[Rfam]
RNA sequence: AGUAAAGGAGCAAUAACCAAUUUCUUGUUCUGUCAAGAAACUGGUAUUGCCCCUUUAU
Numbered sequence: 001a002g003u004a005a006a007g008g009a010g011c012a013a014u015a016a017c018c019a020a021u022u023u024c025u026u027g028u029u030c031u032g033u034c035a036a037g038a039a040a041c042u043g044g045u046a047u048u049g050c051c052c053c054u055u056u057a058u
Base pairs, nucleotide, nucleotide: 004056005055006054007053008052010050011049012048013047014046015045022039023038024037025036026035027034